The family of this 258-nucleotide sequence from Desulfacinum hydrothermale is "Bacterial large signal recognition particle RNA". Its Rfam clan is "SRP clan". By type it is a non-coding RNA gene. Rfam's curators write: The signal recognition particle (SRP) is a universally conserved ribonucleoprotein involved in the co-translational targeting of proteins to membranes.

RNA sequence: UCGUGCUAGGCGGGGAGCUAGCGGUUCCCUGAACCCGAAAUCCGCUCAGCGGGGCUGAAUCCCCCUUCGAGGGCUCGUGCCAGGACGAUCCGUUUGGAACUGCAGCGUCGGUCGGACACCGCGCAACAGACGGAUGUGAACCCCGUCAGGUCCGGAAGGAAGCAGCGGUAAGCAUUGCGGUCUGUGUCGUGGUUUACUCUGACCAAGACCUGCAGGGACGGCGGAUCGACACCGACCGGUUCGACGAGGGGUGCACGG
Numbered sequence: 001u002c003g004u005g006c007u008a009g010g011c012g013g014g015g016a017g018c019u020a021g022c023g024g025u026u027c028c029c030u031g032a033a034c035c036c037g038a039a040a041u042c043c044g045c046u047c048a049g050c051g052g053g054g055c056u057g058a059a060u061c062c063c064c065c066u067u068c069g070a071g072g073g074c075u076c077g078u079g080c081c082a083g084g085a086c087g088a089u090c091c092g093u094u095u096g097g098a099a100c101u102g103c104a105g106c107g108u109c110g111g112u113c114g115g116a117c118a119c120c121g122c123g124c125a126a127c128a129g130a131c132g133g134a135u136g137u138g139a140a141c142c143c144c145g146u147c148a149g150g151u152c153c154g155g156a157a158g159g160a161a162g163c164a165g166c167g168g169u170a171a172g173c174a175u176u177g178c179g180g181u182c183u184g185u186g187u188c189g190u191g192g193u194u195u196a197c198u199c200u201g202a203c204c205a206a207g208a209c210c211u212g213c214a215g216g217g218a219c220g221g222c223g224g225a226u227c228g229a230c231a232c233c234g235a236c237c238g239g240u241u242c243g244a245c246g247a248g249g250g251g252u253g254c255a256c257g258g
Stems, first nucleotide, its partner, number of pairs: 001258006009056003012030008034053004062251006071242005084230001086228002091220002100216001101214003110204007118193006124186002127184005133176005143168004151160003